This 151-nucleotide RNA sequence from Vitis vinifera belongs to the Rfam family "U4 spliceosomal RNA".
RNA sequence: AUCUUUGCGCUUGGGGCAAUGACGCAGCUAGUGAGGUUCUAACCGAGGCGCGUCAAUUGCUGGUUGAAAACUAUUUCCAAACCCCCUCCUUGGCCUGGGUUACGCCCAGGCCAUCGAGAAUUUCUGGAAGGGCUCCCUAAGGGGUAAAGCC
Number, nucleotide and partner (000 for none) at each position: 001a000002u000003c000004u000005u000006u000007g000008c000009g000010c000011u000012u000013g000014g000015g000016g000017c000018a000019a000020u000021g054022a053023c052024g051025c050026a000027g049028c048029u047030a000031g000032u000033g000034a000035g044036g043037u042038u000039c000040u000041a000042a037043c036044c035045g000046a000047g029048g028049c027050g025051c024052g023053u022054c021055a000056a000057u000058u000059g000060c000061u000062g000063g000064u000065u000066g000067a000068a000069a000070a000071c000072u000073a000074u000075u000076u000077c000078c000079a000080a000081a000082c000083c000084c000085c000086c118087u117088c116089c000090u000091u113092g112093g111094c110095c109096u108097g107098g106099g105100u000101u000102a000103c000104g000105c099106c098107c097108a096109g095110g094111c093112c092113a091114u000115c000116g088117a087118g086119a000120a000121u000122u000123u000124c000125u000126g000127g000128a000129a000130g000131g151132g150133c149134u148135c000136c000137c000138u000139a000140a000141g000142g000143g000144g000145u000146a000147a000148a134149g133150c132151c131
Gene Ontology terms of the family: spliceosomal tri-snRNP complex assembly and U4 snRNP. About the family: U4 small nuclear RNA (U4 snRNA) is a component of the major U2-dependent spliceosome. By type it is a spliceosomal small nuclear RNA. The source organism's lineage runs through Eukaryota, Tracheophyta, Vitaceae, Viteae and Vitis. Pairs were carried over by alignment from the consensus structure, which is taken from published work.